[Rfam]
RNA: Molybdenum/Tungsten riboswitch aptamer (Moco RNA motif)
Nucleotides: 122
Base pairs, nucleotide, nucleotide: 003116011108012107013106014105015104016103019057020056021055022054026050028049029048030047035043036042037041064090065089066088067087068086069085070084071083074081075080091099092098
Number, partner (000 for none) and nucleotide at each position: 001000g002000u003116u004000c005000g006000u007000a008000a009000a010000a011108u012107c013106u014105u015104c016103c017000g018000a019057g020056c021055c022054u023000u024000c025000u026050a027000u028049u029048c030047c031000u032000a033000a034000a035043g036042c037041g038000u039000a040000a041037u042036g043035c044000c045000a046000u047030g048029g049028a050026u051000u052000c053000c054022a055021g056020g057019c058000c059000g060000u061000u062000c063000a064090g065089g066088g067087u068086g069085a070084g071083u072000u073000g074081c075080g076000g077000a078000a079000a080075c081074g082000g083071a084070c085069u086068u087067g088066c089065c090064u091099u092098c093000c094000a095000u096000u097000u098092g099091a100000a101000a102000a103016g104015g105014a106013g107012g108011a109000a110000a111000u112000a113000u114000u115000a116003a117000u118000a119000a120000u121000g122000u